[Rfam]
RNA sequence: GGAGACGUCAGGGUGUCUGGUGGCCCCCGCGGCCUCUAAAGCCGACGUGGCCGAGCAACUCGGUCAGGCGGGUUCGAUUCCCGUCCGUCUCC
Number, nucleotide and partner (000 for none) at each position: 001g092002g091003a090004g089005a088006c087007g086008u000009c000010a000011g000012g027013g026014u000015g024016u023017c022018u000019g000020g000021u000022g017023g016024c015025c000026c013027c012028c000029g000030c044031g043032g042033c041034c000035u000036c000037u000038a000039a000040a000041g033042c032043c031044g030045a000046c000047g000048u066049g065050g064051c063052c062053g000054a000055g000056c000057a000058a000059c000060u000061c000062g052063g051064u050065c049066a048067g000068g000069c083070g082071g081072g080073u000074u000075c000076g000077a000078u000079u000080c072081c071082c070083g069084u000085c000086c007087g006088u005089c004090u003091c002092c001
Annotation: Selenocysteine transfer RNA: a 92-nucleotide sequence from Modestobacter caceresii. A search with the family's covariance model found it, with a score of 64 bits. Taxonomically the source falls in Modestobacter (Bacteria, Bacillati, Actinomycetota, Actinomycetes).